The family of this 62-nucleotide RNA sequence from Mesorhizobium waimense is "Fluoride riboswitch aptamer (crcB RNA motif)".
[Rfam]
RNA sequence: AUAGCGCUCGGGAAUGGUGUCUCCCUGAUAACCGCGCUGAUGCUGAUGACGCCUACUGACGA
Numbered sequence: 001a002u003a004g005c006g007c008u009c010g011g012g013a014a015u016g017g018u019g020u021c022u023c024c025c026u027g028a029u030a031a032c033c034g035c036g037c038u039g040a041u042g043c044u045g046a047u048g049a050c051g052c053c054u055a056c057u058g059a060c061g062a
Base pairs, nucleotide, nucleotide: 010025011024012023013022016053017052018051019050020049021048034043035042036041

NCBI's taxonomy places the organism under Bacteria, Pseudomonadota, Alphaproteobacteria, Hyphomicrobiales, Mesorhizobium. A search with the family's covariance model found it, with a score of 46 bits.